[Rfam]
RNA: Small nucleolar RNA U3
Organism: Herpetotheres cachinnans
RNA sequence: AGGACUAUACUUUCAGGGAUCAUUUCUGUAGUUGGUCACUAGAGGAGGGUGAUCUUCCCUGAUCGGCGUCACAAGCCACGAGGAGGAUGAUUGUGUUGUCUCCUGAGCGGGAAGCGGGCGGGCGGUGCUGCUUGGGCAGGGGCCGCUCGCCAUUGAUGACCGUUCCCGUUUGCCCUUGGGCAGCGGGAGGGAGAGAGCACGGGCUGAGUGGU
Numbered sequence: 001a002g003g004a005c006u007a008u009a010c011u012u013u014c015a016g017g018g019a020u021c022a023u024u025u026c027u028g029u030a031g032u033u034g035g036u037c038a039c040u041a042g043a044g045g046a047g048g049g050u051g052a053u054c055u056u057c058c059c060u061g062a063u064c065g066g067c068g069u070c071a072c073a074a075g076c077c078a079c080g081a082g083g084a085g086g087a088u089g090a091u092u093g094u095g096u097u098g099u100c101u102c103c104u105g106a107g108c109g110g111g112a113a114g115c116g117g118g119c120g121g122g123c124g125g126u127g128c129u130g131c132u133u134g135g136g137c138a139g140g141g142g143c144c145g146c147u148c149g150c151c152a153u154u155g156a157u158g159a160c161c162g163u164u165c166c167c168g169u170u171u172g173c174c175c176u177u178g179g180g181c182a183g184c185g186g187g188a189g190g191g192a193g194a195g196a197g198c199a200c201g202g203g204c205u206g207a208g209u210g211g212u
Base pairs, nucleotide, nucleotide: 002040003039006035009032010031011030014028015027016026017025018024051063053062054061075212076211077210078209079208093200094199095198096197097196099194100193101192102191103190104189107163108162109161117151118150119149120148123145124144125143126142128139129138130137131136166186167185168184169183170182172181173180174179